Rfam assigns this 185-nucleotide RNA from Thalassotalea agarivorans to the family "Lysine riboswitch aptamer".
Rfam 15.1 lists 3,224 matches to the family in 1,923 species.
The organism belongs to Thalassotalea, within Bacteria.
RNA sequence: GGCACCAGAAGAGGUGCAUUAGCCAGGUAUGCAACUGAAGAAACCACUAUUUCUAUGCAGGUUGCAGAGGGGGACUAAUGCCGAGGAACUUAACCCAGUGGAUGUUGAGUUUCGGUCGCCAAGGCUGAAUCCUUGGGGCUGUCACCGCUCUAAUCAAAAGAGCAAGGUGGAGGGCUUCUGGCUGA
Numbered sequence: 001g002g003c004a005c006c007a008g009a010a011g012a013g014g015u016g017c018a019u020u021a022g023c024c025a026g027g028u029a030u031g032c033a034a035c036u037g038a039a040g041a042a043a044c045c046a047c048u049a050u051u052u053c054u055a056u057g058c059a060g061g062u063u064g065c066a067g068a069g070g071g072g073g074a075c076u077a078a079u080g081c082c083g084a085g086g087a088a089c090u091u092a093a094c095c096c097a098g099u100g101g102a103u104g105u106u107g108a109g110u111u112u113c114g115g116u117c118g119c120c121a122a123g124g125c126u127g128a129a130u131c132c133u134u135g136g137g138g139c140u141g142u143c144a145c146c147g148c149u150c151u152a153a154u155c156a157a158a159a160g161a162g163c164a165a166g167g168u169g170g171a172g173g174g175c176u177u178c179u180g181g182c183u184g185a
Base pairs, nucleotide, nucleotide: 006180007179008178009177010176011175016081017080018079019078020077021076022075024073030066031065032064033063034062035061036060085113086112087111088110089109090108091107092106093105094104114140115139116138117137119136120135121134122133123132124131142170143169144168145167146166
Dot-bracket structure: .....((((((....(((((((.(.....(((((((.......................)))))))......).)))))))...((((((((((.........))))))))))((((.((((((......)))))))))).(((((...................)))))....)))))).....